Shown here is a 78-nucleotide RNA sequence from Nicotiana tabacum, a member of the family "MIR6145 microRNA precursor family". A search with the family's covariance model found it, with a score of 82 bits. Rfam 15.1 lists 52 matches to the family in 9 species. Rfam links the family to the GO terms RISC complex and miRNA-mediated post-transcriptional gene silencing. NCBI's taxonomy places the organism under Eukaryota, Streptophytina, Tracheophyta, Nicotianoideae, Nicotiana.
[Rfam]
RNA sequence: GUAAUGAGCAUUGUUACAUGUAGCACUGGAUCGCAUAAACAUUUGUCGGCCAAUGCUCAUGUGACAAUCCUCUUUGCU
Dot-bracket structure: ((((.(((.((((((((((..((((.(((.(................).))).)))).)))))))))).))).)))).